[Rfam]
RNA: Small nucleolar RNA SNORA70
RNA sequence: CUGCAGCCAAUUAAGCCGACCGGCCCCCUCUUCCCAUGGGGGCCUGGUUUGCAAUGGCUGCAGACAGCAGCCUCCUUGGUAGUGUAUGUGGCCUGUUGCCUGUACAGGUUGCCCUAAGGGACCUUGGAGACAGCC
Numbered sequence: 001c002u003g004c005a006g007c008c009a010a011u012u013a014a015g016c017c018g019a020c021c022g023g024c025c026c027c028c029u030c031u032u033c034c035c036a037u038g039g040g041g042g043c044c045u046g047g048u049u050u051g052c053a054a055u056g057g058c059u060g061c062a063g064a065c066a067g068c069a070g071c072c073u074c075c076u077u078g079g080u081a082g083u084g085u086a087u088g089u090g091g092c093c094u095g096u097u098g099c100c101u102g103u104a105c106a107g108g109u110u111g112c113c114c115u116a117a118g119g120g121a122c123c124u125u126g127g128a129g130a131c132a133g134c135c
Base pairs, nucleotide, nucleotide: 002053003052004051005050019048020047021046022045025042026041027040028039078123079122080121089111090110091109092108093107094106